This 52-nucleotide RNA sequence from Aotus nancymaae belongs to the Rfam family "mir-1302 microRNA precursor family". Its family is annotated with RISC complex and miRNA-mediated post-transcriptional gene silencing in the Gene Ontology. The organism belongs to Aotus, within Eukaryota. It scores 63 bits against the family's covariance model. For this family Rfam cites "Application of massively parallel sequencing to microRNA profiling and discovery in human embryonic stem cells" (Morin et al., Genome Res, 2008).

RNA sequence: UUGCUAGUGUAAGUAUAUCCCAGGCAAUAUUUGGGAUGUAUUUAUGCUAAAA
Number, nucleotide and partner (000 for none) at each position: 001u000002u000003g000004c000005u000006a048007g047008u046009g045010u044011a043012a042013g000014u040015a039016u038017a000018u036019c035020c034021c033022a031023g000024g000025c000026a000027a000028u000029a000030u000031u022032u000033g021034g020035g019036a018037u000038g016039u015040a014041u000042u012043u011044a010045u009046g008047c007048u006049a000050a000051a000052a000